The record is a 71-nucleotide RNA from Sinocyclocheilus grahami, which matches "Small nucleolar RNA SNORD24" in Rfam.
[Rfam]
RNA sequence: UGCAGAUGAUGUGAGAAUAUUUGCUAUCUGAACAGCAAUGCAGACAAUCUUCCACCAAGAUCACUGAUGCA
Numbered sequence: 001u002g003c004a005g006a007u008g009a010u011g012u013g014a015g016a017a018u019a020u021u022u023g024c025u026a027u028c029u030g031a032a033c034a035g036c037a038a039u040g041c042a043g044a045c046a047a048u049c050u051u052c053c054a055c056c057a058a059g060a061u062c063a064c065u066g067a068u069g070c071a
Stems, first nucleotide, its partner, number of pairs: 001071004
Gene Ontology terms of the family: RNA processing and nucleolus.